[Rfam]
RNA: Small nucleolar RNA SNORA70
Organism: Pan troglodytes
RNA sequence: GGGCAGCCAUUAAGGCCAAAUGAGUUCCUUUCUUGUGGGCCGCGAGUGUGCAAUGGUGCACACACAGCUUCCUUGGGUAGUGUCCACAGCCUGUUGUUGAUGCGUUGCUCUAAGGGACCUUUGAGACAGGC
Numbered sequence: 001g002g003g004c005a006g007c008c009a010u011u012a013a014g015g016c017c018a019a020a021u022g023a024g025u026u027c028c029u030u031u032c033u034u035g036u037g038g039g040c041c042g043c044g045a046g047u048g049u050g051c052a053a054u055g056g057u058g059c060a061c062a063c064a065c066a067g068c069u070u071c072c073u074u075g076g077g078u079a080g081u082g083u084c085c086a087c088a089g090c091c092u093g094u095u096g097u098u099g100a101u102g103c104g105u106u107g108c109u110c111u112a113a114g115g116g117a118c119c120u121u122u123g124a125g126a127c128a129g130g131c
Stems, first nucleotide, its partner, number of pairs: 003051003019047001021045001027039002076119003087107004092102001